RNA: Glycine riboswitch aptamer
RNA sequence: CAUUUCCCCGUGGGAGAGUAUCGUUUCGCGAGAAACGGUCGCCGAAGGAGCAACCGCCCCGGAAUCUCUCAGGCCAAAGGAUCGCGGGGGAUAG
Numbered sequence: 001c002a003u004u005u006c007c008c009c010g011u012g013g014g015a016g017a018g019u020a021u022c023g024u025u026u027c028g029c030g031a032g033a034a035a036c037g038g039u040c041g042c043c044g045a046a047g048g049a050g051c052a053a054c055c056g057c058c059c060c061g062g063a064a065u066c067u068c069u070c071a072g073g074c075c076a077a078a079g080g081a082u083c084g085c086g087g088g089g090g091a092u093a094g
Stems, first nucleotide, its partner, number of pairs: 006089008020039004041074003044070002048068003054062002